Annotation:
The family of this 115-nucleotide RNA sequence from Moritella sp. PE36 is "Ribosomal S15 leader". Lineage of the source: Bacteria > Pseudomonadati > Gammaproteobacteria > Alteromonadales > Moritella. Its Rfam clan is "Ribosomal Protein S15 Leader clan". It is annotated as a cis-regulatory leader. Pairs were carried over by alignment from the consensus structure, which is taken from published work. The E. coli Ribosomal S15 gene 5' UTR can form two alternative structures. One that is a series of three hairpins, The other includes a pseudoknot. This structure causes translational regulation of the S15 protein. The alignment of this family contains only the final two hairpins which are conserved in other species, and also includes the complete region that forms the alternate structures.
RNA sequence: UCUUAUAGCUGAACGAGUGGUCGGCUAUGAGCUAUUUAUCUAUAUUGGAGACUCCACUAUGUCAUUAAACGCUGAAGCUAAAGCAGCUAUCGUUGCAGAUUUCGCACGCCAAGAA
Numbered sequence: 001u002c003u004u005a006u007a008g009c010u011g012a013a014c015g016a017g018u019g020g021u022c023g024g025c026u027a028u029g030a031g032c033u034a035u036u037u038a039u040c041u042a043u044a045u046u047g048g049a050g051a052c053u054c055c056a057c058u059a060u061g062u063c064a065u066u067a068a069a070c071g072c073u074g075a076a077g078c079u080a081a082a083g084c085a086g087c088u089a090u091c092g093u094u095g096c097a098g099a100u101u102u103c104g105c106a107c108g109c110c111a112a113g114a115a
Stems, first nucleotide, its partner, number of pairs: 007026006045068004050063001